A member of the RNA family "Vertebrate telomerase RNA" from Prunella himalayana, 447 nucleotides long. A search with the family's covariance model found it, with a score of 140 bits. The family's consensus secondary structure is taken from published work. A reference for the family is Chen et al. (2000), "Secondary structure of vertebrate telomerase RNA", Cell. Lineage of the source: Eukaryota > Bilateria > Deuterostomia > Sarcopterygii > Prunella. Rfam's curators write: Telomerase is a ribonucleoprotein reverse transcriptase that synthesises telomeric DNA. Telomerase RNAs differ greatly in sequence and structure between vertebrates, ciliates and yeasts, but they share a 5' pseudoknot structure close to the template sequence. Vertebrate telomerase RNAs have a 3' H/ACA snoRNA-like domain. Gene Ontology terms of the family: telomerase activity, telomere maintenance via telomerase and telomerase catalytic core complex.
RNA sequence: UGUGCCGGGGUGGGCAGGCCCUGUGGCCAACUAACCCUAAUGGCGGCCGCGCCCCUCACGCUCGCCCGCUGUUUUACUCGCUGACUUUCAGCGGGCAAAGGGAGCGGCCCAGGGGAAGGGGGUGGGGGGAAAGAGUUCCGGCCUCAAAAAAAGCCAGCGAGGGGGAUCCACACCCCGGCCCACCCUGGGGUCCCUGUCCCCUCUCCGCAGCCGGGGAUGCUCCCGCCCUUGCCCCUCGUGGAGGCCGCGGUCGGCGGGCUCAGCGCCGCUGCCGCCGCGAAGAGUUCGUCUCUGUCAGCCUCGGCGGCGGCCGGGAGCUGAGGGCCGGCGCGCCCACCCUGGGCAGCCGGGGGACCCCAGCAGAGCAAAACGGGAGCGGCGCCGCUGGGCGCUGAGCAGCCGCCCCCCUGAGCCGUGGGGUGCGCGGUCGGCGCCGCCCCGACACCC
Numbered sequence: 001u002g003u004g005c006c007g008g009g010g011u012g013g014g015c016a017g018g019c020c021c022u023g024u025g026g027c028c029a030a031c032u033a034a035c036c037c038u039a040a041u042g043g044c045g046g047c048c049g050c051g052c053c054c055c056u057c058a059c060g061c062u063c064g065c066c067c068g069c070u071g072u073u074u075u076a077c078u079c080g081c082u083g084a085c086u087u088u089c090a091g092c093g094g095g096c097a098a099a100g101g102g103a104g105c106g107g108c109c110c111a112g113g114g115g116a117a118g119g120g121g122g123u124g125g126g127g128g129g130a131a132a133g134a135g136u137u138c139c140g141g142c143c144u145c146a147a148a149a150a151a152a153g154c155c156a157g158c159g160a161g162g163g164g165g166a167u168c169c170a171c172a173c174c175c176c177g178g179c180c181c182a183c184c185c186u187g188g189g190g191u192c193c194c195u196g197u198c199c200c201c202u203c204u205c206c207g208c209a210g211c212c213g214g215g216g217a218u219g220c221u222c223c224c225g226c227c228c229u230u231g232c233c234c235c236u237c238g239u240g241g242a243g244g245c246c247g248c249g250g251u252c253g254g255c256g257g258g259c260u261c262a263g264c265g266c267c268g269c270u271g272c273c274g275c276c277g278c279g280a281a282g283a284g285u286u287c288g289u290c291u292c293u294g295u296c297a298g299c300c301u302c303g304g305c306g307g308c309g310g311c312c313g314g315g316a317g318c319u320g321a322g323g324g325c326c327g328g329c330g331c332g333c334c335c336a337c338c339c340u341g342g343g344c345a346g347c348c349g350g351g352g353g354a355c356c357c358c359a360g361c362a363g364a365g366c367a368a369a370a371c372g373g374g375a376g377c378g379g380c381g382c383c384g385c386u387g388g389g390c391g392c393u394g395a396g397c398a399g400c401c402g403c404c405c406c407c408c409u410g411a412g413c414c415g416u417g418g419g420g421u422g423c424g425c426g427g428u429c430g431g432c433g434c435c436g437c438c439c440c441g442a443c444a445c446c447c
Stems, first nucleotide, its partner, number of pairs: 006178001008176003014169001017167001019165004051105002054102002064096008080158004085153001086151003185360007210329005219318007230307001233304001246279005252274004257267003281293004374439001376437008400427004405420004